[Rfam]
RNA: TPP riboswitch aptamer (THI element)
RNA sequence: CGCAAACGCUAGGGGUGCUGACUGUCGUGAGGCGGUCGGCUGAGAUAACACCCUGGAACUUGAUCAAGGUAAUACUUGCGCAGGGAAGCGUGGUGAGUACAUG
Numbered sequence: 001c002g003c004a005a006a007c008g009c010u011a012g013g014g015g016u017g018c019u020g021a022c023u024g025u026c027g028u029g030a031g032g033c034g035g036u037c038g039g040c041u042g043a044g045a046u047a048a049c050a051c052c053c054u055g056g057a058a059c060u061u062g063a064u065c066a067a068g069g070u071a072a073u074a075c076u077u078g079c080g081c082a083g084g085g086a087a088g089c090g091u092g093g094u095g096a097g098u099a100c101a102u103g
Stems, first nucleotide, its partner, number of pairs: 006091005011054004016048001017040009059084004065078004